[Rfam]
RNA sequence: CUUUCCGCGUUGAUUCUCGUUAAACAGGGAAAACGGUGGAAUUAUAAAAUUUGUCUGAUCGCGCAAAAACGCAGCAAUGGCGUAAGACGUAAUGCGAAAUCAAACAAUUAGCGGGCUGCGGGUUGCAGCUUGGCCGGCAAAUGGAAUCAGAUCUGUCGACGUAAAUCAGAGGCUAUUCCCCUAGUAAAAGUGCUGUCUUUCACAAAGAAAAGCAGGCUUACCGAGAUAAUGCGCCCCUAUGCAGGCGACAACCGUGAGGUUGACGACUUUGCGAGAAGACACGGGGCUUUCGGUUUAACUCCGGCCAUGAGGUUAUUUUGCCCGCAGCUUUGUCGAUAA
Numbered sequence: 001c002u003u004u005c006c007g008c009g010u011u012g013a014u015u016c017u018c019g020u021u022a023a024a025c026a027g028g029g030a031a032a033a034c035g036g037u038g039g040a041a042u043u044a045u046a047a048a049a050u051u052u053g054u055c056u057g058a059u060c061g062c063g064c065a066a067a068a069a070c071g072c073a074g075c076a077a078u079g080g081c082g083u084a085a086g087a088c089g090u091a092a093u094g095c096g097a098a099a100u101c102a103a104a105c106a107a108u109u110a111g112c113g114g115g116c117u118g119c120g121g122g123u124u125g126c127a128g129c130u131u132g133g134c135c136g137g138c139a140a141a142u143g144g145a146a147u148c149a150g151a152u153c154u155g156u157c158g159a160c161g162u163a164a165a166u167c168a169g170a171g172g173c174u175a176u177u178c179c180c181c182u183a184g185u186a187a188a189a190g191u192g193c194u195g196u197c198u199u200u201c202a203c204a205a206a207g208a209a210a211a212g213c214a215g216g217c218u219u220a221c222c223g224a225g226a227u228a229a230u231g232c233g234c235c236c237c238u239a240u241g242c243a244g245g246c247g248a249c250a251a252c253c254g255u256g257a258g259g260u261u262g263a264c265g266a267c268u269u270u271g272c273g274a275g276a277a278g279a280c281a282c283g284g285g286g287c288u289u290u291c292g293g294u295u296u297a298a299c300u301c302c303g304g305c306c307a308u309g310a311g312g313u314u315a316u317u318u319u320g321c322c323c324g325c326a327g328c329u330u331u332g333u334c335g336a337u338a339a
Stems, first nucleotide, its partner, number of pairs: 003041006014031005051107004056102003062096004069090003074081002113330011131307007143179005152170004189218003193215004198210004220294005233287005246265002249262005
Overview: The record is a 339-nucleotide sequence from Serratia marcescens, which matches "RNase E 5' UTR element" in Rfam. The family's RNA type in Rfam is cis-regulatory element. Lineage of the source: Bacteria > Pseudomonadati > Pseudomonadota > Yersiniaceae > Serratia. For this family Rfam cites "An evolutionarily conserved RNA stem-loop functions as a sensor that directs feedback regulation of RNase E gene expression" (Diwa et al., Genes Dev, 2000). This family represents a conserved element found in the 5' UTR of RNase E mRNA. RNase E is a key regulatory enzyme in the pathway of mRNA degradation in E. coli that is able to auto-regulate the degradation of its own mRNA in response to changes in RNase E activity. This rne 5' UTR element acts as a sensor of cellular RNase E concentration enabling tight regulation of RNase E concentration and synthesis.